[Rfam]
RNA sequence: GGACUGUGACGAUUUAUAUCAUUGGUCUCGUUCGUCGUAAUGGCUGUUUUGCCUUGACGACCAUCCUGAUAUAUCACCACCCAUAUUCUGAGUCC
Dot-bracket structure: ((((.........................................(.......).....................................))))
About this RNA: The record is a 95-nucleotide sequence from Turnera subulata, which matches "Small nucleolar RNA Z43" in Rfam. The family's RNA type in Rfam is C/D-box small nucleolar RNA. Its family is annotated with nucleolus and RNA processing in the Gene Ontology. The organism belongs to Turnera, within Eukaryota. Rfam 15.1 lists 859 matches to the family in 240 species.